[Rfam]
The family of this 47-nucleotide RNA sequence from Streptomyces laurentii is "raiA-hairpin RNA". The family's RNA type in Rfam is small RNA.
RNA sequence: CGCCAAGUCCGGGGCUCCGGCAAACGCCGGGGUCUGGUGCAAAGGGA
Number, nucleotide and partner (000 for none) at each position: 001c000002g000003c000004c000005a000006a000007g000008u000009c000010c000011g000012g000013g034014g033015c032016u031017c030018c029019g028020g027021c000022a000023a000024a000025c000026g000027c020028c019029g018030g017031g016032g015033u014034c013035u000036g000037g000038u000039g000040c000041a000042a000043a000044g000045g000046g000047a000